[Rfam]
Description: The record is a 417-nucleotide RNA sequence, which matches "Alphaproteobacteria transfer-messenger RNA" in Rfam. It scores 106 bits against the family's covariance model. Bacterial tmRNA, also known as 10Sa RNA or SsrA, is named for its dual tRNA and mRNA-like properties. Pairs were carried over by alignment from the consensus structure, which is taken from published work.
Nucleotides: 417
Stems, first nucleotide, its partner, number of pairs: 031036001044261005054256004061250001070241003074238003080096005097223007262278002268289002271286003384396001386394001392411001
Number, partner (000 for none) and nucleotide at each position: 001000u002000c003000g004000c005000u006000g007000c008000g009000a010000g011000a012000u013000a014000c015000c016000g017000a018000a019000a020000u021000a022000a023000g024000c025000a026000g027000c028000u029000u030000c031036g032000a033000c034000a035000c036031c037000a038000c039000a040000u041000u042000a043000c044261g045260c046259a047258c048257g049000u050000a051000a052000u053000u054256c055255c056254u057253c058000a059000g060000a061250c062000u063000u064000g065000a066000g067000g068000a069000c070241a071240c072239u073000u074238c075237u076236g077000g078000a079000c080096u081095c082094g083093g084092g085000g086000g087000c088000g089000g090000u091000a092084c093083c094082c095081g096080a097223c098222g099221g100220c101219u102218c103217c104000a105000c106000c107000a108000a109000a110000a111000g112000c113000u114000c115000a116000c117000c118000a119000c120000g121000g122000a123000a124000u125000g126000c127000c128000c129000g130000a131000a132000u133000a134000c135000g136000c137000c138000c139000g140000a141000a142000a143000g144000g145000c146000u147000u148000a149000g150000g151000c152000a153000u154000g155000g156000c157000c158000g159000a160000a161000g162000u163000a164000a165000g166000g167000a168000a169000g170000a171000g172000g173000c174000a175000g176000g177000a178000c179000u180000c181000a182000c183000c184000g185000a186000g187000a188000c189000c190000c191000c192000u193000g194000c195000g196000u197000u198000c199000c200000c201000g202000u203000g204000g205000u206000g207000a208000g209000c210000u211000u212000u213000u214000g215000a216000u217103g218102g219101g220100g221099c222098c223097g224000a225000a226000a227000u228000a229000g230000g231000a232000u233000c234000g235000a236076c237075a238074g239072g240071g241070u242000g243000g244000a245000u246000a247000g248000a249000c250061g251000a252000a253057g254056a255055g256054g257048c258047g259046u260045g261044c262278c263277g264000a265000c266000a267000g268289a269288u270000g271286u272285c273284c274000c275000a276000c277263c278262g279000u280000u281000a282000u283000c284273g285272g286271g287000c288269a289268u290000g291000a292000a293000c294000c295000a296000a297000c298000a299000a300000g301000u302000g303000c304000a305000a306000a307000c308000g309000a310000a311000a312000a313000c314000u315000u316000u317000g318000c319000u320000c321000c322000g323000a324000u325000g326000g327000a328000g329000a330000u331000g332000c333000g334000u335000c336000u337000c338000g339000c340000u341000g342000c343000c344000u345000g346000a347000g348000c349000c350000u351000a352000a353000c354000g355000g356000c357000u358000g359000a360000g361000g362000u363000u364000g365000a366000g367000a368000c369000c370000u371000u372000c373000u374000a375000c376000a377000a378000c379000a380000g381000c382000g383000c384396u385000u386394u387000c388000c389000g390000g391000u392411g393000u394386g395000c396384g397000u398000g399000g400000u401000a402000a403000c404000a405000g406000a407000a408000a409000c410000a411392c412000c413000g414000g415000g416000c417000c